[Rfam]
A member of the RNA family "Bacterial large signal recognition particle RNA" from Eubacteriaceae bacterium CHKCI004, 264 nucleotides long.
Gene Ontology terms of the family: signal recognition particle, plasma membrane targeting and SRP-dependent cotranslational protein targeting to membrane, signal sequence recognition.
RNA sequence: CCGUGCAGCUGGGGAGUUAGCGGCGUCCUGUACCUGCAAUCCGCUAUAGCAGGAGUGAUGGUUGGCCCCGGACGUUCUGUGGAUGGAGCUGCCCUUUAUAAGUGGUGUUGACAAUUGGGUCUCGCGCAACAGGAACCUCUGAACCGUGUCAGGUCGGGAACGAAGCAGCACUAAGGAGUGCUUCUUGUGUGCCGUGAGGGUGCCUGGUUCGAGCUAACUGUAGAGGUAACGUCUGUUGGCAGUCGUACAAAGCCAACCGCACGG
Numbered sequence: 001c002c003g004u005g006c007a008g009c010u011g012g013g014g015a016g017u018u019a020g021c022g023g024c025g026u027c028c029u030g031u032a033c034c035u036g037c038a039a040u041c042c043g044c045u046a047u048a049g050c051a052g053g054a055g056u057g058a059u060g061g062u063u064g065g066c067c068c069c070g071g072a073c074g075u076u077c078u079g080u081g082g083a084u085g086g087a088g089c090u091g092c093c094c095u096u097u098a099u100a101a102g103u104g105g106u107g108u109u110g111a112c113a114a115u116u117g118g119g120u121c122u123c124g125c126g127c128a129a130c131a132g133g134a135a136c137c138u139c140u141g142a143a144c145c146g147u148g149u150c151a152g153g154u155c156g157g158g159a160a161c162g163a164a165g166c167a168g169c170a171c172u173a174a175g176g177a178g179u180g181c182u183u184c185u186u187g188u189g190u191g192c193c194g195u196g197a198g199g200g201u202g203c204c205u206g207g208u209u210c211g212a213g214c215u216a217a218c219u220g221u222a223g224a225g226g227u228a229a230c231g232u233c234u235g236u237u238g239g240c241a242g243u244c245g246u247a248c249a250a251a252g253c254c255a256a257c258c259g260c261a262c263g264g
Stems, first nucleotide, its partner, number of pairs: 001264006008056003011029004016024003033053005061257006070248001072246003077242004082237005090228002094225006102218002104215003113209008121198006127189002130187005137178004146171004154163003

Notes: The family's RNA type in Rfam is non-coding RNA gene.